[Rfam]
Nucleotides: 046
Base pairs, nucleotide, nucleotide: 001031002030003029007025008024009023010022011021
Number, partner (000 for none) and nucleotide at each position: 001031a002030u003029c004000a005000g006000a007025c008024g009023g010022c011021a012000g013000u014000a015000a016000c017000a018000a019000a020000a021011u022010g023009u024008c025007g026000a027000a028000a029003g030002a031001u032000a033000g034000c035000a036000a037000a038000a039000g040000a041000a042000u043000c044000a045000g046000u